This 83-nucleotide RNA from Prunus dulcis belongs to the Rfam family "mir-156 microRNA precursor family". Rfam's curators write: This family represents the plant microRNA (miRNA) precursor mir-156.
RNA sequence: CUGACAGAAGAGAGUGAGCACACUCAGGCAAUUGUAUAAAGCUAUACCUUUGCGUGCUGCGUGCUCACUUCUCUUUCUGUCAG
Numbered sequence: 001c002u003g004a005c006a007g008a009a010g011a012g013a014g015u016g017a018g019c020a021c022a023c024u025c026a027g028g029c030a031a032u033u034g035u036a037u038a039a040a041g042c043u044a045u046a047c048c049u050u051u052g053c054g055u056g057c058u059g060c061g062u063g064c065u066c067a068c069u070u071c072u073c074u075u076u077c078u079g080u081c082a083g
Stems, first nucleotide, its partner, number of pairs: 001083009010073003013069009023059001
About this RNA:
The organism belongs to Prunus, within Eukaryota.